[Rfam]
RNA sequence: GCUUUACACUUACCUUAAGAGGCGGUGUAAGCCGGUCACGACAAGUGGUCAGCUCAAGUGUCCUGCUACGGCGAAUACAUCACGAGGUUCGGUAAAGCGCAGAGUACCGCUUCGGCGGGAAAUGCGAGACCGGC
Numbered sequence: 001g002c003u004u005u006a007c008a009c010u011u012a013c014c015u016u017a018a019g020a021g022g023c024g025g026u027g028u029a030a031g032c033c034g035g036u037c038a039c040g041a042c043a044a045g046u047g048g049u050c051a052g053c054u055c056a057a058g059u060g061u062c063c064u065g066c067u068a069c070g071g072c073g074a075a076u077a078c079a080u081c082a083c084g085a086g087g088u089u090c091g092g093u094a095a096a097g098c099g100c101a102g103a104g105u106a107c108c109g110c111u112u113c114g115g116c117g118g119g120a121a122a123u124g125c126g127a128g129a130c131c132g133g134c
Stems, first nucleotide, its partner, number of pairs: 001032002004030007013022002064073003087134001089133005098126004107118002
Shown here is a 134-nucleotide sequence, a member of the family "Bacteriophage Diversity-Generating Retroelement RNA". It is annotated as a small RNA. The family's consensus secondary structure is taken from published work.